Shown here is a 404-nucleotide RNA from Marinicauda algicola, a member of the family "Bacterial RNase P class A". NCBI's taxonomy places the organism under Bacteria, Pseudomonadota, Alphaproteobacteria, Maricaulales, Marinicauda. Rfam classes the family as a ribozyme. Gene Ontology terms of the family: dimeric ribonuclease P complex, ribonuclease P activity and tRNA processing.

RNA sequence: UCAGACGGCCGGGCGGCCGCUCCGGUCCAGUGGCGAAAGCCGGGCCGGAGAGGAAAGUCCGGGCUCCACGGAAGGAGGGCGCCGGGAAACCCCCGGCGGGCCGGUUCGCCGGUUCAGGGAAAGCGCCGCAGAAAACAAACCGCCGGACAGUCGGUUCGCCGAUUGGCCGGCAAGGGUGAAACGGUGCGGUAAGAGCGCACCGCCCCGACUGCAAGGAAGGGGGCACGGCAAGCCCCGCCCGGAGCAAGACCGAAUAGGGAUGGACGCGCCGCUCCGGCGGCGCACGCGCCUUCCGAGCGCCAUCCGGGUAGGUCGCUAGAGGCGGCGGGCAACCGCCGCCCCAGAUGAAUGGUCGCCGCGGGCUUCGGCCCGUACAGAACCCGGCUUACAGGCCGUCUGACCUU
Numbered sequence: 001u002c003a004g005a006c007g008g009c010c011g012g013g014c015g016g017c018c019g020c021u022c023c024g025g026u027c028c029a030g031u032g033g034c035g036a037a038a039g040c041c042g043g044g045c046c047g048g049a050g051a052g053g054a055a056a057g058u059c060c061g062g063g064c065u066c067c068a069c070g071g072a073a074g075g076a077g078g079g080c081g082c083c084g085g086g087a088a089a090c091c092c093c094c095g096g097c098g099g100g101c102c103g104g105u106u107c108g109c110c111g112g113u114u115c116a117g118g119g120a121a122a123g124c125g126c127c128g129c130a131g132a133a134a135a136c137a138a139a140c141c142g143c144c145g146g147a148c149a150g151u152c153g154g155u156u157c158g159c160c161g162a163u164u165g166g167c168c169g170g171c172a173a174g175g176g177u178g179a180a181a182c183g184g185u186g187c188g189g190u191a192a193g194a195g196c197g198c199a200c201c202g203c204c205c206c207g208a209c210u211g212c213a214a215g216g217a218a219g220g221g222g223g224c225a226c227g228g229c230a231a232g233c234c235c236c237g238c239c240c241g242g243a244g245c246a247a248g249a250c251c252g253a254a255u256a257g258g259g260a261u262g263g264a265c266g267c268g269c270c271g272c273u274c275c276g277g278c279g280g281c282g283c284a285c286g287c288g289c290c291u292u293c294c295g296a297g298c299g300c301c302a303u304c305c306g307g308g309u310a311g312g313u314c315g316c317u318a319g320a321g322g323c324g325g326c327g328g329g330c331a332a333c334c335g336c337c338g339c340c341c342c343a344g345a346u347g348a349a350u351g352g353u354c355g356c357c358g359c360g361g362g363c364u365u366c367g368g369c370c371c372g373u374a375c376a377g378a379a380c381c382c383g384g385c386u387u388a389c390a391g392g393c394c395g396u397c398u399g400a401c402c403u404u
Base pairs, nucleotide, nucleotide: 001400002399003398004397005396006395007394008393009392010391011389012357013356014355015354016353017352018351020050021049022048023047024046025045026044027043028042055387056386057385059384060383061382062381063380064244065243066242067241074292075291077240078239079238080237081236082096083095084094085093086092097117098115099114100113101112102111103110104109118235119234123233124232125229126228127227140175141174142171143170144169145168146167148165149164150163151162152161153160154159183201184200185199186198187197188196202224203222204221205220206219209216210215248314249313250312251311258305259304260303261302262301263300285299286298287297289295321340322339323338324337325336326335327334328333